Histone 3' UTR stem-loop: a 46-nucleotide RNA from Labeo rohita. Its family is annotated with mRNA 3'-end processing by stem-loop binding and cleavage in the Gene Ontology. The literature on the family includes a 1995 paper in Nucleic Acids Res by Williams and Marzluff, "The sequence of the stem and flanking sequences at the 3' end of histone mRNA are critical determinants for the binding of the stem-loop binding protein". The family's RNA type in Rfam is cis-regulatory element. Taxonomically the source falls in Labeo (Eukaryota, Deuterostomia, Teleostomi, Labeoninae).

RNA sequence: CCAAAGGCUUUAUUAAAAGCUAUCCACAUUAUAAUAAAAGAGCAAU
Numbered sequence: 001c002c003a004a005a006g007g008c009u010u011u012a013u014u015a016a017a018a019g020c021u022a023u024c025c026a027c028a029u030u031a032u033a034a035u036a037a038a039a040g041a042g043c044a045a046u
Stems, first nucleotide, its partner, number of pairs: 006021006